[Rfam]
RNA: Small nucleolar RNA sn3071
Organism: Laodelphax striatellus
Nucleotides: 072
Stems, first nucleotide, its partner, number of pairs: 001072004
Number, partner (000 for none) and nucleotide at each position: 001072c002071u003070g004069c005000u006000a007000u008000g009000a010000u011000g012000a013000u014000u015000u016000u017000g018000u019000c020000a021000c022000g023000a024000c025000g026000g027000u028000c029000u030000u031000c032000u033000g034000a035000u036000a037000u038000a039000g040000a041000a042000c043000a044000a045000u046000g047000a048000a049000u050000g051000a052000u053000a054000u055000u056000u057000a058000u059000g060000u061000g062000a063000c064000a065000c066000u067000g068000a069004g070003u071002a072001g